Rfam assigns this 140-nucleotide sequence from Ziziphus jujuba to the family "Small nucleolar RNA U19".
Rfam links the family to the GO terms RNA processing and nucleolus.
The literature on the family includes a 2002 paper in Curr Biol by Marker et al., "Experimental RNomics: identification of 140 candidates for small non-messenger RNAs in the plant Arabidopsis thaliana".
NCBI's taxonomy places the organism under Eukaryota, Mesangiospermae, Gunneridae, Ziziphus, Ziziphus jujuba.
RNA sequence: CCAUGGUUUAGUUAGGGGGCAUAAAUCGAUUUUAUGGAUUCGAAUUGGAUCGGUUUGAUUCGAUUUGAAUCGGAGGCCUUUUGAGGGGACUCUCUUAUCAGUUUUCUCGUGGAUUGUCCCCCAAGCAGCCUCCAACAUUU
Numbered sequence: 001c002c003a004u005g006g007u008u009u010a011g012u013u014a015g016g017g018g019g020c021a022u023a024a025a026u027c028g029a030u031u032u033u034a035u036g037g038a039u040u041c042g043a044a045u046u047g048g049a050u051c052g053g054u055u056u057g058a059u060u061c062g063a064u065u066u067g068a069a070u071c072g073g074a075g076g077c078c079u080u081u082u083g084a085g086g087g088g089a090c091u092c093u094c095u096u097a098u099c100a101g102u103u104u105u106c107u108c109g110u111g112g113a114u115u116g117u118c119c120c121c122c123a124a125g126c127a128g129c130c131u132c133c134a135a136c137a138u139u140u
Stems, first nucleotide, its partner, number of pairs: 004021002007018003035062003041057005072133006080125004085121006093113001